[Rfam]
Bacteroidete tryptophan peptide leader RNA: a 140-nucleotide RNA sequence from Prevotella sp. S7 MS 2. By type it is a cis-regulatory leader. Taxonomically the source falls in Prevotella (Bacteria, Pseudomonadati, Bacteroidota, Bacteroidales).
RNA sequence: AGAAUAAAAUAUUUGAAAUAAAGAAUAUGAAUAUAUCAAUAUCUACAGCAUGGUGGUGGCGUUUCUCAAGAUUGAAAAAGUCGUGAGUUACGAAGCCAUGUAGAUAUUUGAAUAGAAAAGAUACAUCACAGAGGCCUGUC
Numbered sequence: 001a002g003a004a005u006a007a008a009a010u011a012u013u014u015g016a017a018a019u020a021a022a023g024a025a026u027a028u029g030a031a032u033a034u035a036u037c038a039a040u041a042u043c044u045a046c047a048g049c050a051u052g053g054u055g056g057u058g059g060c061g062u063u064u065c066u067c068a069a070g071a072u073u074g075a076a077a078a079a080g081u082c083g084u085g086a087g088u089u090a091c092g093a094a095g096c097c098a099u100g101u102a103g104a105u106a107u108u109u110g111a112a113u114a115g116a117a118a119a120g121a122u123a124c125a126u127c128a129c130a131g132a133g134g135c136c137u138g139u140c
Stems, first nucleotide, its partner, number of pairs: 036111003044106002046103001048101003052097003060092002065087001071081003